Notes:
Rfam assigns this 80-nucleotide RNA sequence from Pongo pygmaeus to the family "mir-626 microRNA precursor family". The literature on the family includes a 2009 paper in Comput Biol Chem by Baev et al., "Computational identification of novel microRNA homologs in the chimpanzee genome". Lineage of the source: Eukaryota > Theria > Haplorrhini > Hominoidea > Pongo. Its family is annotated with miRNA-mediated post-transcriptional gene silencing and RISC complex in the Gene Ontology.
RNA sequence: UUGUCGUGUUUGUGAGCUGAGGAGUAUUUUUAUGCAAUCUGAAUGAUCUCAGCUGUCUGCAAAUGUCUUCAAUUUUAAAG
Numbered sequence: 001u002u003g004u005c006g007u008g009u010u011u012g013u014g015a016g017c018u019g020a021g022g023a024g025u026a027u028u029u030u031u032a033u034g035c036a037a038u039c040u041g042a043a044u045g046a047u048c049u050c051a052g053c054u055g056u057c058u059g060c061a062a063a064u065g066u067c068u069u070c071a072a073u074u075u076u077a078a079a080g
Stems, first nucleotide, its partner, number of pairs: 005080001007078001011077002014074002018071006025065005031059002034056003039052004